[Rfam]
Nucleotides: 140
Base pairs, nucleotide, nucleotide: 002066003065004064005063006062010059011058026054029051030050031049032048033047034046080134081133082132083131084130088125089124092121093120094119095118096117097116098115099113100112101110102109
Number, partner (000 for none) and nucleotide at each position: 001000g002066c003065g004064u005063c006062c007000u008000g009000a010059c011058c012000u013000c014000a015000u016000c017000c018000u019000g020000g021000c022000u023000g024000u025000u026054c027000c028000c029051c030050u031049c032048a033047c034046c035000g036000g037000a038000c039000c040000u041000g042000u043000g044000g045000u046034g047033g048032u049031g050030g051029g052000g053000u054026g055000u056000g057000u058011g059010g060000g061000u062006g063005g064004a065003c066002g067000c068000a069000g070000a071000u072000c073000a074000a075000u076000g077000u078000a079000c080134c081133u082132c083131u084130c085000g086000u087000g088125u089124u090000a091000g092121g093120a094119g095118g096117g097116c098115u099113g100112c101110c102109a103000a104000a105000g106000a107000c108000a109102u110101g111000u112100g113099c114000a115098a116097g117096c118095c119094c120093u121092u122000a123000a124089a125088g126000g127000c128000a129000a130084g131083a132082g133081a134080g135000c136000a137000c138000a139000c140000u